A member of the RNA family "c-di-GMP-I-GGC riboswitch aptamer" from Rosistilla oblonga, 74 nucleotides long. The match comes from Rfam's covariance-model search (72 bits). Rfam links the family to the GO term cyclic-di-GMP binding. The family's consensus secondary structure is taken from published work.
[Rfam]
RNA sequence: CUUGAAAAAGGCAAACCGUUCGAAAGGGCGGGGCGCAAAGUUACGGGUCCUUUGGGAUUGCCGGACUGCCAAUG
Numbered sequence: 001c002u003u004g005a006a007a008a009a010g011g012c013a014a015a016c017c018g019u020u021c022g023a024a025a026g027g028g029c030g031g032g033g034c035g036c037a038a039a040g041u042u043a044c045g046g047g048u049c050c051u052u053u054g055g056g057a058u059u060g061c062c063g064g065a066c067u068g069c070c071a072a073u074g
Stems, first nucleotide, its partner, number of pairs: 001074001003071002011036002016031006034060001039067004044063003047058003